[Rfam]
RNA sequence: CUCGACUUGUCGGAGUGCCAUCUACAUUUUUGUAAUGGCUGAGAUCGCGAAAGCGGGAUCCGUAGAACCUGAUUCAGACUAAUAUCUGCGAAGGAAACAAGGGAAUAAACACC
Dot-bracket structure: .....(((((((((.((((((.............)))))......(((....))))..)))).....(((....((((......))))...)))..)))))............
Numbered sequence: 001c002u003c004g005a006c007u008u009g010u011c012g013g014a015g016u017g018c019c020a021u022c023u024a025c026a027u028u029u030u031u032g033u034a035a036u037g038g039c040u041g042a043g044a045u046c047g048c049g050a051a052a053g054c055g056g057g058a059u060c061c062g063u064a065g066a067a068c069c070u071g072a073u074u075c076a077g078a079c080u081a082a083u084a085u086c087u088g089c090g091a092a093g094g095a096a097a098c099a100a101g102g103g104a105a106u107a108a109a110c111a112c113c
Stems, first nucleotide, its partner, number of pairs: 006101005011062004016056001017039005046055003068094003075088004